[Rfam]
RNA: SAM riboswitch aptamer (S box leader)
Organism: Bacillus sp. V3-13
Nucleotides: 105
Stems, first nucleotide, its partner, number of pairs: 001105008013041001015040003021031003025079004042071004047067002049064004075097001080094005
Number, partner (000 for none) and nucleotide at each position: 001105c002104u003103c004102u005101u006100a007099u008098c009000c010000a011000g012000a013041g014000c015040g016039g017038c018000g019000g020000a021031g022030g023029g024000a025079c026078a027077g028076g029023c030022c031021c032000u033000g034000u035000g036000a037000a038017g039016c040015c041013c042071g043070g044069c045068a046000a047067c048066c049064u050063g051062c052061a053000a054000g055000g056000a057000a058000a059000c060000u061052u062051g063050c064049a065000a066048g067047g068045u069044g070043c071042u072000a073000a074000a075097u076028c077027c078026u079025g080094c081093a082092g083091a084090u085000a086000u087000a088000a089000g090084a091083u092082c093081u094080g095000g096000a097075a098008g099007a100006u101005a102004a103003g104002a105001g